[Rfam]
A member of the RNA family "TPP riboswitch aptamer (THI element)" from Marinobacter litoralis, 96 nucleotides long. It scores 69 bits against the family's covariance model. Vitamin B(1) in its active form thiamin pyrophosphate (TPP) is an essential coenzyme that is synthesised by coupling of pyrimidine and thiazole moieties in bacteria. Pairs were carried over by alignment from the consensus structure, which is taken from published work. The organism belongs to Marinobacter, within Bacteria.
Nucleotides: 096
Stems, first nucleotide, its partner, number of pairs: 006084005011046004016040001017032005052077003059070003
Number, partner (000 for none) and nucleotide at each position: 001000u002000c003000u004000a005000a006084c007083u008082c009081a010080a011046c012045g013044g014043g015000g016040u017032g018031c019030c020029c021028u022000c023000g024000c025000u026000a027000a028021a029020g030019g031018g032017c033000u034000g035000a036000g037000a038000c039000c040016a041000c042000a043014c044013c045012c046011g047000c048000g049000g050000a051000a052077c053076c054075u055000g056000a057000c058000a059070c060069g061068g062000a063000u064000a065000a066000u067000g068061c069060c070059g071000a072000c073000g074000a075054a076053g077052g078000a079000a080010u081009u082008g083007a084006g085000u086000c087000a088000c089000a090000c091000u092000g093000a094000a095000c096000a